RNA sequence: GCCUUACUUCAGCAGCACAAUUGAUACUGGAGAUACUUUACUAAUAAUAACUCCAAUAUUUAUGUGCUGCUAAGGCACAAC
Numbered sequence: 001g002c003c004u005u006a007c008u009u010c011a012g013c014a015g016c017a018c019a020a021u022u023g024a025u026a027c028u029g030g031a032g033a034u035a036c037u038u039u040a041c042u043a044a045u046a047a048u049a050a051c052u053c054c055a056a057u058a059u060u061u062a063u064g065u066g067c068u069g070c071u072a073a074g075g076c077a078c079a080a081c
Base pairs, nucleotide, nucleotide: 001081005077007075010074011071012070013069014068015067016066017065018064020061023060024059025058026057028055029054030053
A member of the RNA family "mir-16 microRNA precursor family" from Python bivittatus, 81 nucleotides long. The family has 14 seed sequences and 4,705 matches in Rfam 15.1. Its family is annotated with RISC complex and miRNA-mediated post-transcriptional gene silencing in the Gene Ontology. The literature on the family includes a 2002 paper in Proc Natl Acad Sci U S A by Calin et al., "Frequent deletions and down-regulation of micro- RNA genes miR15 and miR16 at 13q14 in chronic lymphocytic leukemia".